[Rfam]
RNA: permuted transfer-messenger RNA
Organism: Acidiphilium cryptum
RNA sequence: GGCGAUAAACGAUGCGUGGAAUAAGCGUAGUGGACCCGGGGGCAGUACCCGGCGCCUCCACCAGUUUCCCCGCCGGUCCGGUUCGCAUUGCGCAAAUCGAACCGCCGGCGGUUUCAUGGGGGCGAAACAGGCUCGACACGCGUGGUAAAGACCCAUCUUUCGCUCGGCAUGGUUCCGCCGUCAUCGGGCCGUAUGACAAGUGCCAACGAUAACUUCGAGGCGCUCGCUGUCGCUGCAUAA
Numbered sequence: 001g002g003c004g005a006u007a008a009a010c011g012a013u014g015c016g017u018g019g020a021a022u023a024a025g026c027g028u029a030g031u032g033g034a035c036c037c038g039g040g041g042g043c044a045g046u047a048c049c050c051g052g053c054g055c056c057u058c059c060a061c062c063a064g065u066u067u068c069c070c071c072g073c074c075g076g077u078c079c080g081g082u083u084c085g086c087a088u089u090g091c092g093c094a095a096a097u098c099g100a101a102c103c104g105c106c107g108g109c110g111g112u113u114u115c116a117u118g119g120g121g122g123c124g125a126a127a128c129a130g131g132c133u134c135g136a137c138a139c140g141c142g143u144g145g146u147a148a149a150g151a152c153c154c155a156u157c158u159u160u161c162g163c164u165c166g167g168c169a170u171g172g173u174u175c176c177g178c179c180g181u182c183a184u185c186g187g188g189c190c191g192u193a194u195g196a197c198a199a200g201u202g203c204c205a206a207c208g209a210u211a212a213c214u215u216c217g218a219g220g221c222g223c224u225c226g227c228u229g230u231c232g233c234u235g236c237a238u239a240a
Stems, first nucleotide, its partner, number of pairs: 001164005014154001016152002026142003030139003036052005053124007165180004